Shown here is a 78-nucleotide RNA sequence from Flavobacterium crassostreae, a member of the family "Flavo-1 RNA". The family's consensus secondary structure is taken from published work. The match comes from Rfam's covariance-model search (65 bits). NCBI's taxonomy places the organism under Bacteria, Pseudomonadati, Flavobacteriales, Flavobacteriaceae, Flavobacterium.
RNA sequence: AUCUAGCCCUGAUAGUAGUGAAAAUCCUACUGAGCCGGGGUUCGGCGAGGUAGAUUGUAACGGAUAGCAGGAAAUAGC
Numbered sequence: 001a002u003c004u005a006g007c008c009c010u011g012a013u014a015g016u017a018g019u020g021a022a023a024a025u026c027c028u029a030c031u032g033a034g035c036c037g038g039g040g041u042u043c044g045g046c047g048a049g050g051u052a053g054a055u056u057g058u059a060a061c062g063g064a065u066a067g068c069a070g071g072a073a074a075u076a077g078c
Base pairs, nucleotide, nucleotide: 009070010069011068013066014065018061019060023056024055025054026053029051030050031049034046035045036044